[Rfam]
RNA sequence: CAUCCCGAUGAUGAUGUUUUCCUAGUUUUAACGUUAAAAGUAGACUGAAAUUCGUUGAUGAGAAAUUGGGUCUGAGGGAUG
Number, nucleotide and partner (000 for none) at each position: 001c081002a080003u079004c078005c077006c076007g000008a000009u000010g000011a000012u000013g000014a000015u000016g000017u000018u000019u000020u000021c000022c000023u000024a000025g000026u000027u000028u000029u000030a000031a000032c000033g000034u000035u000036a000037a000038a000039a000040g000041u000042a000043g000044a000045c000046u000047g000048a000049a000050a000051u000052u000053c000054g000055u000056u000057g000058a000059u000060g000061a000062g000063a000064a000065a000066u000067u000068g000069g000070g000071u000072c000073u000074g000075a000076g006077g005078g004079a003080u002081g001
Shown here is an 81-nucleotide RNA from Handroanthus impetiginosus, a member of the family "Small nucleolar RNA R21". For this family Rfam cites "Identification of 66 box C/D snoRNAs in Arabidopsis thaliana: extensive gene duplications generated multiple isoforms predicting new ribosomal RNA 2'-O-methylation sites" (Barneche et al., J Mol Biol, 2001). The base pairs follow the family's consensus structure, which was predicted with PFOLD. Rfam links the family to the GO terms nucleolus and RNA processing. A search with the family's covariance model found it, with a score of 55 bits.